[Rfam]
RNA: Fluoride riboswitch aptamer (crcB RNA motif)
RNA sequence: AUUAAUAUAGGUGAUGGGGUUCCACCUUAUAACCGCCAUGUGGCUGAUGACUCCUGACAUAUU
Numbered sequence: 001a002u003u004a005a006u007a008u009a010g011g012u013g014a015u016g017g018g019g020u021u022c023c024a025c026c027u028u029a030u031a032a033c034c035g036c037c038a039u040g041u042g043g044c045u046g047a048u049g050a051c052u053c054c055u056g057a058c059a060u061a062u063u
Base pairs, nucleotide, nucleotide: 010026011025012024013023016054017053018052019051020050021049035044036043037042